[Rfam]
RNA sequence: GGAGGUUUGGGUGAGCGGUUUAAACCAGCAGUCUUGAAAACUGCCGACGGGCAACCGUCCGUGAGUUCGAAUCUCACAGCCUCCG
Numbered sequence: 001g002g003a004g005g006u007u008u009g010g011g012u013g014a015g016c017g018g019u020u021u022a023a024a025c026c027a028g029c030a031g032u033c034u035u036g037a038a039a040a041c042u043g044c045c046g047a048c049g050g051g052c053a054a055c056c057g058u059c060c061g062u063g064a065g066u067u068c069g070a071a072u073c074u075c076a077c078a079g080c081c082u083c084c085g
Base pairs, nucleotide, nucleotide: 001084002083003082004081005080006079007078010026011025012024028044029043030042031041032040061077062076063075064074065073